[Rfam]
RNA sequence: CUUCCUAAUAAAUCUAGCCUCUACUAGGCUUUGUCUGUGCCUUUGAAAUCAAGUCAGACAUAGCCUAUGAGAGGUUAGGUGUACCAAGGAGG
Numbered sequence: 001c002u003u004c005c006u007a008a009u010a011a012a013u014c015u016a017g018c019c020u021c022u023a024c025u026a027g028g029c030u031u032u033g034u035c036u037g038u039g040c041c042u043u044u045g046a047a048a049u050c051a052a053g054u055c056a057g058a059c060a061u062a063g064c065c066u067a068u069g070a071g072a073g074g075u076u077a078g079g080u081g082u083a084c085c086a087a088g089g090a091g092g
Base pairs, nucleotide, nucleotide: 012080013079014078015077016076017075018074019073020072027065028064029063030062032060033059034058035057036056
Dot-bracket structure: ...........(((((((((......((((.(((((...................))))).))))......)))))))))............